[Rfam]
RNA sequence: AUAGCACUUUCACAGGUGCUCCCCAGGCAGUGGGCCAGGAUUUGGUAGCUGGUGCUGAAAGAAAACCCUUGAGUGCAUCCUUUUCCGGGGACUGUGCCAGUGGUAGCUGUCACUCAAUGGCACAGAG
Number, nucleotide and partner (000 for none) at each position: 001a000002u000003a056004g055005c054006a053007c052008u051009u000010u000011c000012a000013c044014a043015g042016g000017u040018g000019c038020u037021c000022c034023c033024c032025a000026g000027g000028c000029a000030g000031u000032g024033g023034g022035c000036c000037a020038g019039g000040a017041u000042u015043u014044g013045g000046u000047a000048g000049c000050u000051g008052g007053u006054g005055c004056u003057g000058a000059a000060a000061g000062a000063a000064a000065a000066c000067c120068c119069u117070u116071g115072a114073g000074u112075g111076c000077a110078u109079c000080c000081u106082u105083u000084u103085c102086c100087g000088g098089g097090g000091a000092c000093u000094g000095u000096g000097c089098c088099a000100g086101u000102g085103g084104u000105a082106g081107c000108u000109g078110u077111c075112a074113c000114u072115c071116a070117a069118u000119g068120g067121c000122a000123c000124a000125g000126a000127g000
This 127-nucleotide sequence from Myotis myotis belongs to the Rfam family "Small nucleolar RNA SNORA30/SNORA37 family". By type it is an H/ACA-box small nucleolar RNA. The family has 11 seed sequences and 407 matches in Rfam 15.1. NCBI's taxonomy places the organism under Eukaryota, Eumetazoa, Theria, Vespertilionidae, Myotis. The match comes from Rfam's covariance-model search (106 bits).